[Rfam]
RNA sequence: UCAAGUUUGACAACACUCUGGUGCCUUAUAUUUUGAAAUUUCAUUUCAAAAAAAUUCCGUAUUUGGUUCCUAUUUUGGCUCAAACAAGAUUAAACUGACAAUUACUCAUCGAGAUAAUCCUCCCAUGAUUAUAUUGAUCCAUCUUUCACUCGUCAGAAAU
Numbered sequence: 001u002c003a004a005g006u007u008u009g010a011c012a013a014c015a016c017u018c019u020g021g022u023g024c025c026u027u028a029u030a031u032u033u034u035g036a037a038a039u040u041u042c043a044u045u046u047c048a049a050a051a052a053a054a055u056u057c058c059g060u061a062u063u064u065g066g067u068u069c070c071u072a073u074u075u076u077g078g079c080u081c082a083a084a085c086a087a088g089a090u091u092a093a094a095c096u097g098a099c100a101a102u103u104a105c106u107c108a109u110c111g112a113g114a115u116a117a118u119c120c121u122c123c124c125a126u127g128a129u130u131a132u133a134u135u136g137a138u139c140c141a142u143c144u145u146u147c148a149c150u151c152g153u154c155a156g157a158a159a160u
Stems, first nucleotide, its partner, number of pairs: 007083003020070002023067002028064001030062002033049007096155004109137004114132006
RNA: Small nucleolar RNA snR80